[Rfam]
Nucleotides: 104
Stems, first nucleotide, its partner, number of pairs: 007057006015047002020044002022041001023038006059077007079099001081102001085097003
Number, partner (000 for none) and nucleotide at each position: 001000c002000a003000c004000u005000a006000a007057g008056u009055u010054u011053u012052c013000u014000a015047g016046g017000g018000u019000u020044c021043c022041g023038u024037a025036a026035u027034a028033u029000c030000g031000c032000u033028g034027u035026a036025u037024u038023a039000g040000u041022c042000u043021g044020g045000u046016c047015c048000a049000a050000g051000a052012g053011a054010a055009a056008a057007c058000u059077c060076a061075u062074a063073g064072a065071u066000a067000a068000u069000u070000u071065a072064u073063c074062u075061a076060u077059g078000u079099c080000a081102c082000g083000g084000a085097a086096g087095g088000a089000c090000a091000a092000a093000a094000g095087c096086c097085u098000g099079g100000g101000a102081g103000a104000u

The family of this 104-nucleotide sequence from Vagococcus teuberi is "Guanidine-I riboswitch aptamer". The base pairs follow the family's consensus structure. The organism belongs to Vagococcus, within Bacteria.